[Rfam]
RNA: S10-Clostridia ribosomal protein leader
Organism: Eubacterium sp. CAG:841
RNA sequence: UGAUGUGCGAUGAAGCGGGAGGUUGCCGUGUUUUCACGGGUAAUUUCCGCAGAGUAUGUCCGACAUUGAACCGGGCGA
Numbered sequence: 001u002g003a004u005g006u007g008c009g010a011u012g013a014a015g016c017g018g019g020a021g022g023u024u025g026c027c028g029u030g031u032u033u034u035c036a037c038g039g040g041u042a043a044u045u046u047c048c049g050c051a052g053a054g055u056a057u058g059u060c061c062g063a064c065a066u067u068g069a070a071c072c073g074g075g076c077g078a
Base pairs, nucleotide, nucleotide: 015050016049017048019047020046021045022044026039027038028037029036030035059078060077064075066073